[Rfam]
RNA sequence: AAAUCUGUUCUUAAAAAAAAAUCUGUUCUUAUCAGUUUAAUAUCUGAUACGUCCCCUACCCGGGGACCAUAUAUUAAAUUGAUUUUUGGAGCAGGGAGAUGGAAUAGGGGCUUGCUCCGUCCACUCCACGCAUCGACCCAGUAUUGCAGUACUUCUGGGAACGGUGCACCCCCU
Numbered sequence: 001a002a003a004u005c006u007g008u009u010c011u012u013a014a015a016a017a018a019a020a021a022u023c024u025g026u027u028c029u030u031a032u033c034a035g036u037u038u039a040a041u042a043u044c045u046g047a048u049a050c051g052u053c054c055c056c057u058a059c060c061c062g063g064g065g066a067c068c069a070u071a072u073a074u075u076a077a078a079u080u081g082a083u084u085u086u087u088g089g090a091g092c093a094g095g096g097a098g099a100u101g102g103a104a105u106a107g108g109g110g111c112u113u114g115c116u117c118c119g120u121c122c123a124c125u126c127c128a129c130g131c132a133u134c135g136a137c138c139c140a141g142u143a144u145u146g147c148a149g150u151a152c153u154u155c156u157g158g159g160a161a162c163g164g165u166g167c168a169c170c171c172c173c174u
Stems, first nucleotide, its partner, number of pairs: 001008001030049006051067006095127004101121002107118004130167006137159005

A member of the RNA family "U2 spliceosomal RNA" from Betta splendens, 174 nucleotides long. Rfam classes the family as a spliceosomal small nuclear RNA. It scores 123 bits against the family's covariance model. Rfam's curators write: U2 is a small nuclear RNA (snRNA) component of the spliceosome (involved in pre-mRNA splicing). Complementary binding between U2 snRNA (in an area lying towards the 5' end but 3' to hairpin I) and the branchpoint sequence (BPS) of the intron results the bulging out of an unpaired adenosine, on the BPS, which initiates a nucleophilic attack at the intronic 5' splice site, thus starting the first of two transesterification reactions that mediate splicing.